[Rfam]
RNA sequence: CCCAGUGUUCAGACUACCUGUUCAUCAUGCUGCAGCUGAACAGUAGUCCGCACAUUGGUU
Numbered sequence: 001c002c003c004a005g006u007g008u009u010c011a012g013a014c015u016a017c018c019u020g021u022u023c024a025u026c027a028u029g030c031u032g033c034a035g036c037u038g039a040a041c042a043g044u045a046g047u048c049c050g051c052a053c054a055u056u057g058g059u060u
Stems, first nucleotide, its partner, number of pairs: 002058007010050001012048005018043004023038002
Dot-bracket structure: .(((((((.(.(((((.((((.((............)).))))))))).).)))))))..
mir-199 microRNA precursor family: a 60-nucleotide RNA sequence from Ictalurus punctatus. Lineage of the source: Eukaryota > Eumetazoa > Euteleostomi > Otophysi > Ictalurus. The family's consensus secondary structure was predicted with RNAalifold. Rfam's curators put it in the seed alignment. Rfam describes the family as follows. This family consists of the microRNA (miRNA) precursor mir-199 which appears to be specific to humans. Animal miRNAs are transcribed as ~70nt precursors and subsequently processed by the Dicer enzyme to give a ~22nt product. A reference for the family is Ambros (2001), "microRNAs: tiny regulators with great potential", Cell.